Burkholderia RNA 7 (anti-hemB): an 89-nucleotide RNA sequence from Pelomonas sp. HMWF004.
By type it is a small RNA.
Rfam's curators write: This RNA motif was identified by computational search in b-proteobacteria Burkholderia. Co-purified with Hfq, expression confirmed by Northern blot.
Lineage of the source: Bacteria > Betaproteobacteria > Burkholderiales > Sphaerotilaceae > Roseateles.
[Rfam]
RNA sequence: UCCUGCUUUUUCCUCCCUGAGCAGGAGCCGUGUCGGCGAUGACAGCAACAUGGCUUUGCGACCCCGGCCUGGUGCCGGGGUUCUUUUUU
Numbered sequence: 001u002c003c004u005g006c007u008u009u010u011u012c013c014u015c016c017c018u019g020a021g022c023a024g025g026a027g028c029c030g031u032g033u034c035g036g037c038g039a040u041g042a043c044a045g046c047a048a049c050a051u052g053g054c055u056u057u058g059c060g061a062c063c064c065c066g067g068c069c070u071g072g073u074g075c076c077g078g079g080g081u082u083c084u085u086u087u088u089u
Base pairs, nucleotide, nucleotide: 002025003024004023005022006021007020027054028053029052030051031050032049033048061081062080063079064078065077066076067075068074